Rfam assigns this 97-nucleotide RNA from Bartonella quintana to the family "Bacterial small signal recognition particle RNA". For this family Rfam cites "SRPDB: Signal Recognition Particle Database" (Rosenblad et al., Nucleic Acids Res, 2003). By type it is a non-coding RNA gene. Rfam links the family to the GO terms signal recognition particle, plasma membrane targeting and SRP-dependent cotranslational protein targeting to membrane, signal sequence recognition. It is one of the family's seed sequences. NCBI's taxonomy places the organism under Bacteria, Pseudomonadati, Alphaproteobacteria, Hyphomicrobiales, Bartonella quintana.
[Rfam]
RNA sequence: GAGGUUGGUGGUGGACGCACUGCUCGCCAACCGGGUCAGGUCUGGAAAGAAGCAGCCCCAACGAGUUCUGGUACGGGUCAUCGUUCCAGCCUCCUAU
Numbered sequence: 001g002a003g004g005u006u007g008g009u010g011g012u013g014g015a016c017g018c019a020c021u022g023c024u025c026g027c028c029a030a031c032c033g034g035g036u037c038a039g040g041u042c043u044g045g046a047a048a049g050a051a052g053c054a055g056c057c058c059c060a061a062c063g064a065g066u067u068c069u070g071g072u073a074c075g076g077g078u079c080a081u082c083g084u085u086c087c088a089g090c091c092u093c094c095u096a097u
Base pairs, nucleotide, nucleotide: 003091004090005089006088007087008084009083010082011081012080013079016075017074019072020071021070022066023065024064025063026062033058034057035056036055041050042049043048
Dot-bracket structure: ..(((((((((((..((.((((((((......((((....(((....)))....))))...)))))...))).))...))))))..)))))......